[Rfam]
RNA sequence: AAGCUCAAGGGCGUACAAAUCUUGCCAAUGGCAUUUCCCUGGACGUUACCGAUGACCUGCAAGGGUAGGGACCUGGAGUUUGCUCGGCUGGGAGUACGUGCACGGAAACCAGCUGGGU
Number, nucleotide and partner (000 for none) at each position: 001a081002a080003g079004c078005u077006c076007a000008a074009g073010g072011g046012c045013g044014u043015a000016c041017a040018a000019a000020u000021c000022u000023u033024g032025c031026c030027a000028a000029u000030g026031g025032c024033a023034u000035u000036u000037c000038c000039c000040u017041g016042g000043a014044c013045g012046u011047u000048a000049c069050c068051g000052a000053u000054g000055a000056c000057c065058u064059g000060c000061a000062a000063g000064g058065g057066u000067a000068g050069g049070g000071a000072c010073c009074u008075g000076g006077a005078g004079u003080u002081u001082g000083c117084u116085c115086g114087g113088c112089u111090g110091g109092g000093a000094g000095u000096a000097c104098g103099u000100g000101c000102a000103c098104g097105g000106a000107a000108a000109c091110c090111a089112g088113c087114u086115g085116g084117g083118u000
Rfam assigns this 118-nucleotide RNA to the family "Flavobacterium-1 RNA". The family's RNA type in Rfam is small RNA. It is one of the family's seed sequences. Pairs were carried over by alignment from the consensus structure, which is taken from published work.